RNA sequence: CAAAUUAAAUAGACAAAGCCAGAGACAGCAGGAGCUUUCAAAGCUUAAUACCCUGCCGAGGUUUGUAACUCAAUUGCUCGAAUGUCACUCGUGUGAACGACAAAGUGGCAUGGCAGCAGAGGUAUAACCUGCUGAACCCUGGCUGAUAAAGCUGGGGUUUUUGCUUUGAGUA
Numbered sequence: 001c002a003a004a005u006u007a008a009a010u011a012g013a014c015a016a017a018g019c020c021a022g023a024g025a026c027a028g029c030a031g032g033a034g035c036u037u038u039c040a041a042a043g044c045u046u047a048a049u050a051c052c053c054u055g056c057c058g059a060g061g062u063u064u065g066u067a068a069c070u071c072a073a074u075u076g077c078u079c080g081a082a083u084g085u086c087a088c089u090c091g092u093g094u095g096a097a098c099g100a101c102a103a104a105g106u107g108g109c110a111u112g113g114c115a116g117c118a119g120a121g122g123u124a125u126a127a128c129c130u131g132c133u134g135a136a137c138c139c140u141g142g143c144u145g146a147u148a149a150a151g152c153u154g155g156g157g158u159u160u161u162u163g164c165u166u167u168g169a170g171u172a
Base pairs, nucleotide, nucleotide: 028056029055030054031053032052034044035043036042137157138156139155140154141153142152143151144150